This 107-nucleotide RNA sequence from Caenorhabditis latens belongs to the Rfam family "SL2 RNA".
Rfam classes the family as a non-coding RNA gene.
From the family's description: This family represents SL2 RNA. SL2 RNA is involved in trans splicing in lower eukaryotes. Trans-splicing is a form of RNA processing. The acquisition of a spliced leader from a SL RNA is a intra-molecular reaction which precisely joins exons derived from separately transcribed RNAs.
Its family is annotated with mRNA trans splicing, via spliceosome in the Gene Ontology.
The family has 30 seed sequences and 598 matches in Rfam 15.1.
The literature on the family includes a 2000 paper in Mol Cell Biol by Evans and Blumenthal, "trans splicing of polycistronic Caenorhabditis elegans pre-mRNAs: analysis of the SL2 RNA".
RNA sequence: GGAUUUAUCCCAGUUAACUAAGGUUAGCGGUCGUUUCGAUCUUUCGAAAGAAUGUGUCGAAAGCAUAAAUUUUGGAUGAGAUUCUUCGGGGUUUCCGUGGAAGCGAA
Dot-bracket structure: ......(..(..((.(((....))).)).)....).(((((.(((....))).).))))......................(.((((.(((...)).).)))).)..